[Rfam]
RNA sequence: CGACGAGGACGACCUCGCCUUCACGGCACACACCAUCCGGGACGACCCGG
Number, nucleotide and partner (000 for none) at each position: 001c000002g019003a000004c017005g016006a015007g014008g013009a000010c000011g000012a000013c008014c007015u006016c005017g004018c000019c002020u000021u000022c000023a000024c000025g000026g000027c000028a000029c000030a000031c000032a000033c000034c000035a000036u000037c050038c049039g048040g047041g046042a000043c000044g000045a000046c041047c040048c039049g038050g037

Source information:
The family of this 50-nucleotide RNA sequence from Starkeya sp. ORNL1 is "Guanidine-II riboswitch aptamer (mini-ykkC)". A reference for the family is Weinberg et al. (2007), "Identification of 22 candidate structured RNAs in bacteria using the CMfinder comparative genomics pipeline", Nucleic Acids Res. Pairs were carried over by alignment from the consensus structure, which is taken from published work. Rfam's curators write: Simpler in structure and has fewer highly conserved nucleotide positions than the ykkC-yxkD leader. Despite this each of its two stem-loop structures directly bind free guanidine. Therefore, mini-ykkC RNA motif represents a distinct class of guanidine-sensing RNAs. Its crystal structure was also determined.